Overview
The family of this 102-nucleotide RNA sequence from Anaeromonas frigoriresistens is "azaaromatic riboswitch aptamer (yjdF RNA)". It scores 79 bits against the family's covariance model.
RNA sequence: GAGCUAUGAGAUAAAAACACGAUUCGGUUGGUAGUCUGAAUGCAGACUAUAUUCUGUCAGUAACCUGCCCUCCUGGGGUUGUCCAUUCUCUGUUAUAAAGCU
Numbered sequence: 001g002a003g004c005u006a007u008g009a010g011a012u013a014a015a016a017a018c019a020c021g022a023u024u025c026g027g028u029u030g031g032u033a034g035u036c037u038g039a040a041u042g043c044a045g046a047c048u049a050u051a052u053u054c055u056g057u058c059a060g061u062a063a064c065c066u067g068c069c070c071u072c073c074u075g076g077g078g079u080u081g082u083c084c085a086u087u088c089u090c091u092g093u094u095a096u097a098a099a100g101c102u
Stems, first nucleotide, its partner, number of pairs: 008090004022041006042057005067079004